A member of the RNA family "Alphaproteobacterial sRNA ar35" from Phyllobacterium sp. YR531, 128 nucleotides long. For this family Rfam cites "A survey of sRNA families in alpha-proteobacteria" (del Val et al., RNA Biol, 2012). The family has 13 seed sequences and 266 matches in Rfam 15.1. Taxonomically the source falls in Phyllobacterium (Bacteria, Pseudomonadati, Hyphomicrobiales, Phyllobacteriaceae).
RNA sequence: AAGAUGACUGCUGAUCAGCUUCAGGCUGGUUGAUUAUAAUUCGUCUUCGCGGUCUUUGACCACGGAUGUACUGGCACUGAUAGCAAAGACGAGUUUGAGAAGGUCGGGUUUUCCCGGCCUUUUAUUUU
Numbered sequence: 001a002a003g004a005u006g007a008c009u010g011c012u013g014a015u016c017a018g019c020u021u022c023a024g025g026c027u028g029g030u031u032g033a034u035u036a037u038a039a040u041u042c043g044u045c046u047u048c049g050c051g052g053u054c055u056u057u058g059a060c061c062a063c064g065g066a067u068g069u070a071c072u073g074g075c076a077c078u079g080a081u082a083g084c085a086a087a088g089a090c091g092a093g094u095u096u097g098a099g100a101a102g103g104u105c106g107g108g109u110u111u112u113c114c115c116g117g118c119c120u121u122u123u124a125u126u127u128u
Stems, first nucleotide, its partner, number of pairs: 004037003008032001016028005041092007052081003057076002060074003093127001096124001098123010